This 307-nucleotide RNA from Gossypium anomalum belongs to the Rfam family "Plant signal recognition particle RNA".
A search with the family's covariance model found it, with a score of 226 bits.
The family's RNA type in Rfam is non-coding RNA gene.
A reference for the family is Rosenblad et al. (2003), "SRPDB: Signal Recognition Particle Database", Nucleic Acids Res.
Taxonomically the source falls in Gossypium (Eukaryota, Magnoliopsida, eudicotyledons, rosids).
RNA sequence: GCCGAGCUUGGUAACACAAGCUUGUAACCUGAGUGGGGGCUUUAAGGUGAUGGAAUGUGAGCUUGGCUUUGUUGAGUCGGAUCCUCGGGUGGUUUAACUCUGGCUUGUCCUUCCAAGUUGAGAACUGAGCCAAGGGGCUUGAGUGUAAACUCUGAGUCUCGUGGUUCCUAAAGUGGAGGGUACUGCGUGAGGCUGGUUUCACAGAGCAGCGAAGACCUCUCUCUCUUGACAGUGGAAGGAUAACAAGCUUGAUCCACUCCGAUCCAACAUGGCUCAGCAAGCUAACCCUGACUGAACCAUCAUCUUU
Number, nucleotide and partner (000 for none) at each position: 001g040002c039003c038004g023005a022006g021007c020008u019009u018010g017011g000012u000013a000014a000015c000016a000017c010018a009019a008020g007021c006022u005023u004024g000025u000026a000027a000028c037029c036030u035031g000032a000033g000034u000035g030036g029037g028038g003039g002040c001041u000042u000043u000044a306045a305046g304047g303048u302049g301050a300051u299052g298053g297054a000055a000056u294057g293058u291059g000060a289061g000062c000063u285064u284065g283066g282067c281068u000069u280070u279071g278072u277073u276074g275075a274076g273077u272078c271079g265080g264081a263082u262083c261084c000085u000086c000087g000088g257089g000090u256091g255092g254093u000094u000095u252096a000097a000098c000099u000100c251101u000102g249103g248104c247105u246106u245107g244108u243109c239110c238111u237112u236113c235114c234115a233116a000117g230118u229119u228120g227121a226122g225123a224124a000125c000126u000127g167128a166129g165130c164131c163132a162133a000134g160135g159136g158137g157138c156139u155140u154141g153142a151143g150144u149145g000146u000147a000148a000149a144150c143151u142152c000153u141154g140155a139156g138157u137158c136159u135160c134161g000162u132163g131164g130165u129166u128167c127168c173169u000170a000171a000172a000173g168174u000175g220176g219177a218178g217179g216180g000181u000182a000183c000184u213185g000186c211187g210188u209189g000190a000191g000192g000193c204194u203195g202196g000197u000198u000199u000200c000201a000202c195203a194204g193205a000206g000207c000208a000209g188210c187211g186212a000213a184214g000215a000216c179217c178218u177219c176220u175221c000222u000223c000224u123225c122226u121227u120228g119229a118230c117231a000232g000233u115234g114235g113236a112237a111238g110239g109240a000241u000242a000243a108244c107245a106246a105247g104248c103249u102250u000251g100252a095253u000254c092255c091256a090257c088258u000259c000260c000261g083262a082263u081264c080265c079266a000267a000268c000269a000270u000271g078272g077273c076274u075275c074276a073277g072278c071279a070280a069281g067282c066283u065284a064285a063286c000287c000288c000289u060290g000291a058292c000293u057294g056295a000296a000297c053298c052299a051300u050301c049302a048303u047304c046305u045306u044307u000